Shown here is a 73-nucleotide RNA sequence, a member of the family "RT-6 RNA".
By type it is a small RNA.
The sequence is in the family's curated seed alignment.

RNA sequence: UGCCUUACAAGUAGUUGUAAGGGUUGGAGAUUGUUGUCAACAGUUCUUCCACCAGCUCAGCUGAGCGGGUCUG
Numbered sequence: 001u002g003c004c005u006u007a008c009a010a011g012u013a014g015u016u017g018u019a020a021g022g023g024u025u026g027g028a029g030a031u032u033g034u035u036g037u038c039a040a041c042a043g044u045u046c047u048u049c050c051a052c053c054a055g056c057u058c059a060g061c062u063g064a065g066c067g068g069g070u071c072u073g
Base pairs, nucleotide, nucleotide: 003022004021005020006019007018008017009016010015052068053067055066056065057064058063